[Rfam]
RNA sequence: AAUAAUCUUCAGGGCAGGGUGAAAUUCCCGAUCGGUGGUAAAGUCCACGAGCGAAACGAAAACAGCAUAAGUUUAAGUUGAGCAGGAACUGGUGAAAUUCCAGUACCGACAGUAUAGUCUGGAUAGAAGAAGAUACAA
Numbered sequence: 001a002a003u004a005a006u007c008u009u010c011a012g013g014g015c016a017g018g019g020u021g022a023a024a025u026u027c028c029c030g031a032u033c034g035g036u037g038g039u040a041a042a043g044u045c046c047a048c049g050a051g052c053g054a055a056a057c058g059a060a061a062a063c064a065g066c067a068u069a070a071g072u073u074u075a076a077g078u079u080g081a082g083c084a085g086g087a088a089c090u091g092g093u094g095a096a097a098u099u100c101c102a103g104u105a106c107c108g109a110c111a112g113u114a115u116a117g118u119c120u121g122g123a124u125a126g127a128a129g130a131a132g133a134u135a136c137a138a
Stems, first nucleotide, its partner, number of pairs: 005134006017029003031118002033108002035048004043106002051083002088104005110121003
Annotation
A member of the RNA family "FMN riboswitch aptamer (RFN element)" from Nicoletella semolina, 138 nucleotides long. The match comes from Rfam's covariance-model search (108 bits). Pairs were carried over by alignment from the consensus structure, which is taken from published work.